[Rfam]
A member of the RNA family "Vault RNA" from Chiloscyllium punctatum, 96 nucleotides long.
For this family Rfam cites "Evolution of Vault RNAs" (Stadler et al., Mol Biol Evol, 2009).
The family has 73 seed sequences and 2,873 matches in Rfam 15.1.
Taxonomically the source falls in Chiloscyllium (Eukaryota, Eumetazoa, Craniata, Galeomorphii).
It is annotated as a non-coding RNA gene.
About the family: This family of RNAs are found as part of the enigmatic vault ribonucleoprotein complex.
The family's consensus secondary structure is taken from published work.
RNA sequence: GCACUGGCUUUAGCUCAGUAGUUACUUCGAUUUCCUUGAAAUCUGUCUGGUCGCAUGUUCAUGUCCAGUUAACUACAGGCGCUGCCCAGCACUUCA
Numbered sequence: 001g002c003a004c005u006g007g008c009u010u011u012a013g014c015u016c017a018g019u020a021g022u023u024a025c026u027u028c029g030a031u032u033u034c035c036u037u038g039a040a041a042u043c044u045g046u047c048u049g050g051u052c053g054c055a056u057g058u059u060c061a062u063g064u065c066c067a068g069u070u071a072a073c074u075a076c077a078g079g080c081g082c083u084g085c086c087c088a089g090c091a092c093u094u095c096a
Stems, first nucleotide, its partner, number of pairs: 004089004013080003018076004026068002029065002